Description: The record is a 153-nucleotide sequence from Sporomusa silvacetica, which matches "glmS glucosamine-6-phosphate activated ribozyme aptamer" in Rfam. On this family, see Hampel and Tinsley, Biochemistry 2006: "Evidence for preorganization of the glmS ribozyme ligand binding pocket". The source organism's lineage runs through Bacteria, Bacillota, Negativicutes, Sporomusaceae and Sporomusa silvacetica. Pairs were carried over by alignment from the consensus structure, which is taken from published work. It is annotated as a riboswitch.
RNA sequence: AGUUGGAAAAAAGCGCUGGUGCUUGGGGAGAACCAAGCAGACGAGGGAGAGGUUUAUCGAGCAGUCAGCGGAUGCCUCUCGGCGACUGUCGUCGUAAGCUGGCCGACAAAACCGCAAGGUGACCUGCGGAACAAAACGGCAGCAUGCAGAAAA
Numbered sequence: 001a002g003u004u005g006g007a008a009a010a011a012a013g014c015g016c017u018g019g020u021g022c023u024u025g026g027g028g029a030g031a032a033c034c035a036a037g038c039a040g041a042c043g044a045g046g047g048a049g050a051g052g053u054u055u056a057u058c059g060a061g062c063a064g065u066c067a068g069c070g071g072a073u074g075c076c077u078c079u080c081g082g083c084g085a086c087u088g089u090c091g092u093c094g095u096a097a098g099c100u101g102g103c104c105g106a107c108a109a110a111a112c113c114g115c116a117a118g119g120u121g122a123c124c125u126g127c128g129g130a131a132c133a134a135a136a137c138g139g140c141a142g143c144a145u146g147c148a149g150a151a152a153a
Stems, first nucleotide, its partner, number of pairs: 020039007048079005057068001059066002080094006098143004103139002112129005118123001